[Rfam]
RNA sequence: GAUAGCCCACAAUCACCACCGGAUUCAGCGUGGGAUUCGUGACGAGGUGCAGUUGACCCAAGCUCGAAUCGUAGAGUCCCCCAAACUUAGUCGCCUUUAGCACAAGCAGUCCUGCCCCCAGCCCCAACAGGAUGAGGUGAGUCCCUAAGAUAUUGGUCAUCGCUUUCUGGUCAUCCCA
Numbered sequence: 001g002a003u004a005g006c007c008c009a010c011a012a013u014c015a016c017c018a019c020c021g022g023a024u025u026c027a028g029c030g031u032g033g034g035a036u037u038c039g040u041g042a043c044g045a046g047g048u049g050c051a052g053u054u055g056a057c058c059c060a061a062g063c064u065c066g067a068a069u070c071g072u073a074g075a076g077u078c079c080c081c082c083a084a085a086c087u088u089a090g091u092c093g094c095c096u097u098u099a100g101c102a103c104a105a106g107c108a109g110u111c112c113u114g115c116c117c118c119c120a121g122c123c124c125c126a127a128c129a130g131g132a133u134g135a136g137g138u139g140a141g142u143c144c145c146u147a148a149g150a151u152a153u154u155g156g157u158c159a160u161c162g163c164u165u166u167c168u169g170g171u172c173a174u175c176c177c178a
Stems, first nucleotide, its partner, number of pairs: 136175005144169001147166002
Rfam assigns this 178-nucleotide RNA sequence from Acaryochloris thomasi to the family "Antisense RNA which regulates isiA expression". The organism belongs to Acaryochloris thomasi, within Bacteria. The family's consensus secondary structure was predicted with PFOLD.